Rfam assigns this 84-nucleotide RNA to the family "mir-184 microRNA precursor family". The literature on the family includes a 2005 paper in Genes Dev by Chen et al., "The developmental miRNA profiles of zebrafish as determined by small RNA cloning". Rfam's curators put it in the seed alignment.

RNA sequence: CCGCUCUCGUGCCCUUAUCACUUUUCCAGCCCAGCUUCUGCACUCUGACUGUUGGACGGAGAACUGAUAAGGGUGCGCGAGUGA
Numbered sequence: 001c002c003g004c005u006c007u008c009g010u011g012c013c014c015u016u017a018u019c020a021c022u023u024u025u026c027c028a029g030c031c032c033a034g035c036u037u038c039u040g041c042a043c044u045c046u047g048a049c050u051g052u053u054g055g056a057c058g059g060a061g062a063a064c065u066g067a068u069a070a071g072g073g074u075g076c077g078c079g080a081g082u083g084a
Stems, first nucleotide, its partner, number of pairs: 012073009022063006030055002